[Rfam]
RNA sequence: CGUUCCGCCUUAGAGGGAAGCAACCGCGAAAGCGGGGGUCGACGAAGCGGAAGCGAGAAU
Numbered sequence: 001c002g003u004u005c006c007g008c009c010u011u012a013g014a015g016g017g018a019a020g021c022a023a024c025c026g027c028g029a030a031a032g033c034g035g036g037g038g039u040c041g042a043c044g045a046a047g048c049g050g051a052a053g054c055g056a057g058a059a060u
Stems, first nucleotide, its partner, number of pairs: 001055001003052006010046002013043001020039002024035004
Description:
Archaeal large subunit ribosomal RNA: a 60-nucleotide part of an RNA from Triticum urartu. The base pairs follow the family's consensus structure, which is taken from published work. It scores 1338 bits against the family's covariance model.